The family of this 198-nucleotide RNA sequence from Novosphingobium sp. Rr 2-17 is "Manganese Mn2+ riboswitch aptamer (yybP-ykoY)". A search with the family's covariance model found it, with a score of 49 bits. Rfam describes the family as follows. This RNA was originally discovered in E. coli during a large scale screen and was named SraF. The family was later found to exist upstream of related families of protein genes in many bacteria, including the the yybP and ykoK genes in B. subtilis. The organism belongs to Novosphingobium, within Bacteria.
RNA sequence: CGCGCAGUCAUCUGGGGAGUAGCCGCCCGCAUCGAUUUGCGGGACCCGUCGUCAACAUACUCGGUCGAGAGGCCGUGGCGCACGGGAGGACUUUUAAAAAGUCCGGGCGAGACCAAUGACGCUUUGCGGUUCCGUCCUGGCCGGGCGGGUGCUGCGUAGCGUCGUUGCGUUCUUGUCCCGCCCGGCCCCGGAGAACAU
Numbered sequence: 001c002g003c004g005c006a007g008u009c010a011u012c013u014g015g016g017g018a019g020u021a022g023c024c025g026c027c028c029g030c031a032u033c034g035a036u037u038u039g040c041g042g043g044a045c046c047c048g049u050c051g052u053c054a055a056c057a058u059a060c061u062c063g064g065u066c067g068a069g070a071g072g073c074c075g076u077g078g079c080g081c082a083c084g085g086g087a088g089g090a091c092u093u094u095u096a097a098a099a100a101g102u103c104c105g106g107g108c109g110a111g112a113c114c115a116a117u118g119a120c121g122c123u124u125u126g127c128g129g130u131u132c133c134g135u136c137c138u139g140g141c142c143g144g145g146c147g148g149g150u151g152c153u154g155c156g157u158a159g160c161g162u163c164g165u166u167g168c169g170u171u172c173u174u175g176u177c178c179c180g181c182c183c184g185g186c187c188c189c190g191g192a193g194a195a196c197a198u
Base pairs, nucleotide, nucleotide: 026043027042028041045086046085047084048083049082050080051079052078053077054076062075063074064073065072066071087198089196091193092192093191